This 192-nucleotide sequence from Arabidopsis lyrata belongs to the Rfam family "MIR159 microRNA precursor family". Rfam 15.1 lists 3,649 matches to the family in 242 species.
[Rfam]
RNA sequence: AAUAAAAAUAGGGAGCUCCCUUCAGUCCAAGCAUAGAGAAGUGAAGACUCAAUUUGUCUCUCGCAUCAUUCAUUCAUUUACCAUAUGAGAACAUGUUCUUUCAUUUGGUAUUUGGAUGAAUGAGUCGAGAGUCAAUUAAAUCUCACAUAUUACUCCAUGAGUGGACCGAAGAAAGCUCUCUUCCUUCACCAA
Numbered sequence: 001a002a003u004a005a006a007a008a009u010a011g012g013g014a015g016c017u018c019c020c021u022u023c024a025g026u027c028c029a030a031g032c033a034u035a036g037a038g039a040a041g042u043g044a045a046g047a048c049u050c051a052a053u054u055u056g057u058c059u060c061u062c063g064c065a066u067c068a069u070u071c072a073u074u075c076a077u078u079u080a081c082c083a084u085a086u087g088a089g090a091a092c093a094u095g096u097u098c099u100u101u102c103a104u105u106u107g108g109u110a111u112u113u114g115g116a117u118g119a120a121u122g123a124g125u126c127g128a129g130a131g132u133c134a135a136u137u138a139a140a141u142c143u144c145a146c147a148u149a150u151u152a153c154u155c156c157a158u159g160a161g162u163g164g165a166c167c168g169a170a171g172a173a174a175g176c177u178c179u180c181u182u183c184c185u186u187c188a189c190c191a192a
Base pairs, nucleotide, nucleotide: 013178014177015176016175017174020171023168025166026165027164028163029162036155058131059130061128062127063126067122068121069120070119075114
Source information:
A search with the family's covariance model found it, with a score of 88 bits. The base pairs follow the family's consensus structure, which was predicted with WAR.